[Rfam]
A member of the RNA family "Molybdenum/Tungsten riboswitch aptamer (Moco RNA motif)" from Acidaminobacter hydrogenoformans, 123 nucleotides long. The literature on the family includes a 2008 paper in Mol Microbiol by Regulski et al., "in molybdenum cofactor and tungsten cofactor metabolism". It scores 58 bits against the family's covariance model. Taxonomically the source falls in Acidaminobacter hydrogenoformans (Bacteria, Bacillati, Bacillota, Acidaminobacter).
RNA sequence: CAUCAGUGCUUUUUUCGAGCUGAAAGACCUAACACGCACCUUGCGUCAUGGUGUUCAGCCGCCGGGUCACAGGAGAAAUCCUGCGGCCUCCCACUUGAGGAAAGGAAAAAGCCCCAUAGAAUC
Number, nucleotide and partner (000 for none) at each position: 001c000002a000003u000004c000005a000006g114007u000008g000009c000010u000011u109012u108013u107014u106015u105016c104017g000018a000019g059020c058021u057022g056023a055024a054025a000026g000027a052028c051029c050030u000031a000032a000033c000034a046035c045036g044037c000038a000039c000040c000041u000042u000043g000044c036045g035046u034047c000048a000049u000050g029051g028052u027053g000054u024055u023056c022057a021058g020059c019060c000061g000062c000063c000064g089065g088066g087067u086068c085069a000070c083071a082072g081073g080074a079075g000076a000077a000078a000079u074080c073081c072082u071083g070084c000085g068086g067087c066088c065089u064090c100091c099092c000093a000094c000095u000096u000097g000098a000099g091100g090101a000102a000103a000104g016105g015106a014107a013108a012109a011110a000111g000112c000113c000114c006115c000116a000117u000118a000119g000120a000121a000122u000123c000